[Rfam]
RNA sequence: UGAAAGACAUGGGUAGUGAGAUGCGGUAUAUUUAAGAUUGUCUCACUAUCUUGUCUUUCAUG
Dot-bracket structure: .((((((((.(((.(((((((((...............))))))))).)))))))))))...
Numbered sequence: 001u002g003a004a005a006g007a008c009a010u011g012g013g014u015a016g017u018g019a020g021a022u023g024c025g026g027u028a029u030a031u032u033u034a035a036g037a038u039u040g041u042c043u044c045a046c047u048a049u050c051u052u053g054u055c056u057u058u059c060a061u062g
Stems, first nucleotide, its partner, number of pairs: 002059008011051003015047009
Notes
The family of this 62-nucleotide RNA sequence from Acyrthosiphon pisum is "mir-71 microRNA precursor family". The family's consensus secondary structure was predicted with RNAalifold. Lineage of the source: Eukaryota > Allotriocarida > Aphidomorpha > Aphidoidea > Acyrthosiphon.